Shown here is an 86-nucleotide RNA from Dendrobium nobile, a member of the family "Small nucleolar RNA Z221/R21b". Its family is annotated with RNA processing and nucleolus in the Gene Ontology. Lineage of the source: Eukaryota > Embryophyta > Orchidaceae > Dendrobieae > Dendrobium. A reference for the family is Chen et al. (2003), "The high diversity of snoRNAs in plants: identification and comparative study of 120 snoRNA genes from Oryza sativa", Nucleic Acids Res. By type it is a C/D-box small nucleolar RNA.
RNA sequence: AGGCAAUGAUGAAGCAAAUAGUCAUGCACCACUCAGAUCUUUCUCAGUGAUGAUGAUACUGCACUAUUACCCAUCUUUUUGAGCCU
Numbered sequence: 001a002g003g004c005a006a007u008g009a010u011g012a013a014g015c016a017a018a019u020a021g022u023c024a025u026g027c028a029c030c031a032c033u034c035a036g037a038u039c040u041u042u043c044u045c046a047g048u049g050a051u052g053a054u055g056a057u058a059c060u061g062c063a064c065u066a067u068u069a070c071c072c073a074u075c076u077u078u079u080u081g082a083g084c085c086u
Stems, first nucleotide, its partner, number of pairs: 001086004